[Rfam]
The family of this 148-nucleotide RNA from Kouleothrix aurantiaca is "Group II catalytic intron D1-D4-7". Pairs were carried over by alignment from the consensus structure.
RNA sequence: CCUGCUGUCCCAUCAGCAGUACCCUACGAGGUAGUGCAGCUAGGUAACGAACUGUGCGAAGCCCUCGGACAAUGUACCCGCAGUCGCAAGACUGGCACCGGCGCCGUGAGGCAAUAGUGCGUCUGUCAGCGCCACGACGGACAGGGCC
Dot-bracket structure: .((((((......))))))........((((..((((((.(.(....).).)))))).....))))..............(((((....)))))((((.....((....)).....)))).((((((........)))))).......
Numbered sequence: 001c002c003u004g005c006u007g008u009c010c011c012a013u014c015a016g017c018a019g020u021a022c023c024c025u026a027c028g029a030g031g032u033a034g035u036g037c038a039g040c041u042a043g044g045u046a047a048c049g050a051a052c053u054g055u056g057c058g059a060a061g062c063c064c065u066c067g068g069a070c071a072a073u074g075u076a077c078c079c080g081c082a083g084u085c086g087c088a089a090g091a092c093u094g095g096c097a098c099c100g101g102c103g104c105c106g107u108g109a110g111g112c113a114a115u116a117g118u119g120c121g122u123c124u125g126u127c128a129g130c131g132c133c134a135c136g137a138c139g140g141a142c143a144g145g146g147c148c
Stems, first nucleotide, its partner, number of pairs: 002019006028066004034057006041050001043048001081094005095120004104111002122141006
Rfam describes the family as follows. Group II introns are found in rRNA, tRNA and mRNA of organelles in fungi, plants and protists, and also in mRNA in bacteria.